[Rfam]
RNA sequence: UCUUCAUUCUUCACACUUUCUCAGUCAGAUAGGCGAGAGAGUGUGUGAAAUGAAGAGA
Numbered sequence: 001u002c003u004u005c006a007u008u009c010u011u012c013a014c015a016c017u018u019u020c021u022c023a024g025u026c027a028g029a030u031a032g033g034c035g036a037g038a039g040a041g042u043g044u045g046u047g048a049a050a051u052g053a054a055g056a057g058a
Stems, first nucleotide, its partner, number of pairs: 001056007010047001012045006019038004
A member of the RNA family "mir-8364 microRNA precursor family" from Pristionchus pacificus, 58 nucleotides long. The source organism's lineage runs through Eukaryota, Protostomia, Diplogasteroidea, Neodiplogasteridae and Pristionchus.